[Rfam]
RNA: Fungal signal recognition particle RNA
Organism: Decorospora gaudefroyi
RNA sequence: ACCUGUAGCGGGUCAAAGUGCUAGAAGACAUACCGAUCAUCCCCACACACCUCCCUGUCGCUACCCCAGCAGGAGCCCAGUUCGAGUCCUGUGGUGUCCUUUCUAAAAUCCACUCACUUGGGUAGCCAGUGAUGCUGGAGGGACCUAAGCAAUGAAUGCAACGUUGGACGAGGGAAGAAAUUCUGCAGUCGGGCAUUCACCAUGGGAUGGCGGUGCUGGAUUACUCUCGUUAGGGUUGGGGGGCGUGUGGUGGGCUGGUGUGUCGACUAGUAUUUUU
Numbered sequence: 001a002c003c004u005g006u007a008g009c010g011g012g013u014c015a016a017a018g019u020g021c022u023a024g025a026a027g028a029c030a031u032a033c034c035g036a037u038c039a040u041c042c043c044c045a046c047a048c049a050c051c052u053c054c055c056u057g058u059c060g061c062u063a064c065c066c067c068a069g070c071a072g073g074a075g076c077c078c079a080g081u082u083c084g085a086g087u088c089c090u091g092u093g094g095u096g097u098c099c100u101u102u103c104u105a106a107a108a109u110c111c112a113c114u115c116a117c118u119u120g121g122g123u124a125g126c127c128a129g130u131g132a133u134g135c136u137g138g139a140g141g142g143a144c145c146u147a148a149g150c151a152a153u154g155a156a157u158g159c160a161a162c163g164u165u166g167g168a169c170g171a172g173g174g175a176a177g178a179a180a181u182u183c184u185g186c187a188g189u190c191g192g193g194c195a196u197u198c199a200c201c202a203u204g205g206g207a208u209g210g211c212g213g214u215g216c217u218g219g220a221u222u223a224c225u226c227u228c229g230u231u232a233g234g235g236u237u238g239g240g241g242g243g244c245g246u247g248u249g250g251u252g253g254g255c256u257g258g259u260g261u262g263u264c265g266a267c268u269a270g271u272a273u274u275u276u277u
Base pairs, nucleotide, nucleotide: 001013002012003011016275017274018273019272020271021270022269023268027264028263029262030261031260032259033257037254038253043250044249045248046247047246048245050243051242052241053240054239055238064235065234066233068231069230070229072227073226074225075224077219078218079217080216081215082213083212084211086208087207088206089205090204091203092202093201094200109137111134114132115131116130117129118128120127121126145149153199154198155197156196157195158194159193165192167190168189169188174183175182176181